RNA sequence: GCCCUGUGGUUACUGAAUACUGUUGUCCCAGUGCAGUGUUUCAGUUGGUAGAAAUGGGCCAAAAAUAAAUACUCUGGCAUAUGCAUGGAGUCUGAUAUUUUUGCAGCUUCCAUAGCCCGGUCAUUGUUACAUUG
Number, nucleotide and partner (000 for none) at each position: 001g059002c058003c057004c056005u000006g000007u050008g049009g000010u047011u000012a045013c044014u043015g042016a041017a040018u000019a037020c036021u035022g034023u033024u000025g000026u000027c000028c000029c000030a000031g000032u000033g023034c022035a021036g020037u019038g000039u000040u017041u016042c015043a014044g013045u012046u000047g010048g000049u008050a007051g000052a000053a000054a000055u000056g004057g003058g002059c001060c000061a000062a000063a000064a000065a000066u000067a000068a000069a000070u000071a000072c126073u000074c000075u123076g122077g121078c120079a000080u000081a000082u000083g116084c115085a113086u112087g111088g110089a000090g108091u000092c106093u105094g104095a000096u000097a000098u000099u000100u000101u000102u000103g000104c094105a093106g092107c000108u090109u000110c088111c087112a086113u085114a000115g084116c083117c000118c000119g000120g078121u077122c076123a075124u000125u000126g072127u000128u000129a000130c000131a000132u000133u000134g000